[Rfam]
RNA sequence: GCCCCCUGCCACCGUGAUCGUCUUCUCACCGUUCACCCGGCAGGCGGAAAGGGGGAAGCCCUCGCGCGGUCGUGACGCGCGAGGGCUUCCG
Numbered sequence: 001g002c003c004c005c006c007u008g009c010c011a012c013c014g015u016g017a018u019c020g021u022c023u024u025c026u027c028a029c030c031g032u033u034c035a036c037c038c039g040g041c042a043g044g045c046g047g048a049a050a051g052g053g054g055g056a057a058g059c060c061c062u063c064g065c066g067c068g069g070u071c072g073u074g075a076c077g078c079g080c081g082a083g084g085g086c087u088u089c090c091g
Stems, first nucleotide, its partner, number of pairs: 001045001005044006014036004020030001054090015
This 91-nucleotide RNA sequence from Streptomyces sp. WAC 01438 belongs to the Rfam family "sodF sRNA". The literature on the family includes a 2014 paper in Nucleic Acids Res by Kim et al., "Inverse regulation of Fe- and Ni-containing SOD genes by a Fur family regulator Nur through small RNA processed from 3'UTR of the sodF mRNA". The pairing is the family consensus, mapped onto this sequence. The source organism's lineage runs through Bacteria, Actinomycetota, Actinomycetes, Streptomycetaceae and Streptomyces. The family's RNA type in Rfam is small RNA. Rfam 15.1 lists 336 matches to the family in 317 species. Its family is annotated with negative regulation of translation, mRNA binding and regulation of mRNA stability in the Gene Ontology.